This 171-nucleotide sequence from Clostridium niameyense belongs to the Rfam family "Lysine riboswitch aptamer". Taxonomically the source falls in Clostridium (Bacteria, Bacillati, Bacillota, Clostridiaceae). Its family is annotated with lysine biosynthetic process in the Gene Ontology.
[Rfam]
RNA sequence: UACUUAUGGAGAGGUGCUGUAAUUAAGAGUAUUUAUUAGUAGUUGGCGGAUGAUGAUAAAUAAAGAAAGGAAUUACGGCCGAAGGAAAAUUUUUGGUGAGAAGUUUUCCUGGCUUUAUAUAAAAUAUAUAUAAGGCUGUCACUUUAAAAAAAGUGGAGCGCUGCAUAGGUA
Numbered sequence: 001u002a003c004u005u006a007u008g009g010a011g012a013g014g015u016g017c018u019g020u021a022a023u024u025a026a027g028a029g030u031a032u033u034u035a036u037u038a039g040u041a042g043u044u045g046g047c048g049g050a051u052g053a054u055g056a057u058a059a060a061u062a063a064a065g066a067a068a069g070g071a072a073u074u075a076c077g078g079c080c081g082a083a084g085g086a087a088a089a090u091u092u093u094u095g096g097u098g099a100g101a102a103g104u105u106u107u108c109c110u111g112g113c114u115u116u117a118u119a120u121a122a123a124a125u126a127u128a129u130a131u132a133a134g135g136c137u138g139u140c141a142c143u144u145u146a147a148a149a150a151a152a153g154u155g156g157a158g159c160g161c162u163g164c165a166u167a168g169g170u171a
Stems, first nucleotide, its partner, number of pairs: 006166003010162002016079009032064006039057001083110012111137011139156007